The record is a 129-nucleotide sequence from Mus spicilegus, which matches "Small nucleolar RNA SNORA70" in Rfam. On this family, see Charette and Gray, IUBMB Life 2000: "Pseudouridine in RNA: what, where, how, and why". The family's RNA type in Rfam is H/ACA-box small nucleolar RNA. It scores 84 bits against the family's covariance model.
[Rfam]
RNA sequence: CUGCAACCAAUUAAGCCAACCAAGGCCUUUCCCCAUGGGGGCCUAGUGUGCAAUGCUCACAAACAGCAGCCUCCUUGACAUGGGGCCUGUUGCCGAUCUGGGUUGCCCUAAGAGACCUUGGAGACAAUU
Numbered sequence: 001c002u003g004c005a006a007c008c009a010a011u012u013a014a015g016c017c018a019a020c021c022a023a024g025g026c027c028u029u030u031c032c033c034c035a036u037g038g039g040g041g042c043c044u045a046g047u048g049u050g051c052a053a054u055g056c057u058c059a060c061a062a063a064c065a066g067c068a069g070c071c072u073c074c075u076u077g078a079c080a081u082g083g084g085g086c087c088u089g090u091u092g093c094c095g096a097u098c099u100g101g102g103u104u105g106c107c108c109u110a111a112g113a114g115a116c117c118u119u120g121g122a123g124a125c126a127a128u129u
Base pairs, nucleotide, nucleotide: 002052003051004050005049019047020046022044026040027039028038077117084104085103086102087101088100